A member of the RNA family "small nucleolar RNA snoR126" from Theobroma cacao, 115 nucleotides long. A search with the family's covariance model found it, with a score of 56 bits. On this family, see Chen and Wu, Nucleic Acids Res 2009: "Mining small RNA sequencing data: a new approach to identify small nucleolar RNAs in Arabidopsis". Rfam 15.1 lists 423 matches to the family in 200 species. NCBI's taxonomy places the organism under Eukaryota, Streptophytina, eudicotyledons, Byttnerioideae, Theobroma. It is annotated as a C/D-box small nucleolar RNA.
RNA sequence: AGGCAAUGAUGACAAAUUUAUGUUUCUCGAUUCUGAUUUGGAUUUUUUCUUAAAUUCAUUUAAUUUAAGGACCAAAUAGCUUUUUGAUGACAGCGUUUGUGCGUGUCUGAGCCUU
Numbered sequence: 001a002g003g004c005a006a007u008g009a010u011g012a013c014a015a016a017u018u019u020a021u022g023u024u025u026c027u028c029g030a031u032u033c034u035g036a037u038u039u040g041g042a043u044u045u046u047u048u049c050u051u052a053a054a055u056u057c058a059u060u061u062a063a064u065u066u067a068a069g070g071a072c073c074a075a076a077u078a079g080c081u082u083u084u085u086g087a088u089g090a091c092a093g094c095g096u097u098u099g100u101g102c103g104u105g106u107c108u109g110a111g112c113c114u115u
Stems, first nucleotide, its partner, number of pairs: 001114004